RNA sequence: GAGAGCACUCUCCCCUGAGAACUGAAUUCCAUAGAUGGUGGAUCUGGGAUAAUUCAUCUAUGGGCUCAGUUCUUAUGGUCUAGUGUUUAUG
Numbered sequence: 001g002a003g004a005g006c007a008c009u010c011u012c013c014c015c016u017g018a019g020a021a022c023u024g025a026a027u028u029c030c031a032u033a034g035a036u037g038g039u040g041g042a043u044c045u046g047g048g049a050u051a052a053u054u055c056a057u058c059u060a061u062g063g064g065c066u067c068a069g070u071u072c073u074u075a076u077g078g079u080c081u082a083g084u085g086u087u088u089a090u091g
Stems, first nucleotide, its partner, number of pairs: 012078002018073008033059004
RNA: mir-146 microRNA precursor family